[Rfam]
RNA sequence: UCGAGAGUGCCGGUUGCCAAGGUUUCCGGCAGGGUGACGUGUAAAUUCAGUAACCUACUGGCAGAGUAAAAGGACGCGAGGGGCAGGAUGAGUACCCGUGUUUCUGUUAGUUAAUCGAACCGGUUGCCGGAAUGUUUGCUUAAGUGCAUCCGUUCUGUCAAUUAUUAAAGUGGUUACUUUUUUG
Numbered sequence: 001u002c003g004a005g006a007g008u009g010c011c012g013g014u015u016g017c018c019a020a021g022g023u024u025u026c027c028g029g030c031a032g033g034g035u036g037a038c039g040u041g042u043a044a045a046u047u048c049a050g051u052a053a054c055c056u057a058c059u060g061g062c063a064g065a066g067u068a069a070a071a072g073g074a075c076g077c078g079a080g081g082g083g084c085a086g087g088a089u090g091a092g093u094a095c096c097c098g099u100g101u102u103u104c105u106g107u108u109a110g111u112u113a114a115u116c117g118a119a120c121c122g123g124u125u126g127c128c129g130g131a132a133u134g135u136u137u138g139c140u141u142a143a144g145u146g147c148a149u150c151c152g153u154u155c156u157g158u159c160a161a162u163u164a165u166u167a168a169a170g171u172g173g174u175u176a177c178u179u180u181u182u183u184g
Stems, first nucleotide, its partner, number of pairs: 001037002008031006016023001049178007057111008075100004080096002083093002125160002128157007137146003
Rfam assigns this 184-nucleotide RNA to the family "RT-7 RNA". It is annotated as a small RNA. The family's consensus secondary structure is taken from published work. Rfam's curators put it in the seed alignment.